[Rfam]
RNA sequence: AGCCAAUAUUGGCAAAGUACAUGAAAAUGUAUGACGCAAAGCUAUAGGGGCUACGUUUUUUACAAAUAGGCCAGCCAGCUGCAUCU
Numbered sequence: 001a002g003c004c005a006a007u008a009u010u011g012g013c014a015a016a017g018u019a020c021a022u023g024a025a026a027a028u029g030u031a032u033g034a035c036g037c038a039a040a041g042c043u044a045u046a047g048g049g050g051c052u053a054c055g056u057u058u059u060u061u062a063c064a065a066a067u068a069g070g071c072c073a074g075c076c077a078g079c080u081g082c083a084u085c086u
Stems, first nucleotide, its partner, number of pairs: 012037002017032006040080004047076002049072003056066003
The family of this 86-nucleotide sequence from Litchfieldia salsa is "c-di-GMP-I riboswitch aptamer".
Taxonomically the source falls in Litchfieldia (Bacteria, Bacillati, Bacillota, Bacillaceae).
The base pairs follow the family's consensus structure, which is taken from published work.
A search with the family's covariance model found it, with a score of 64 bits.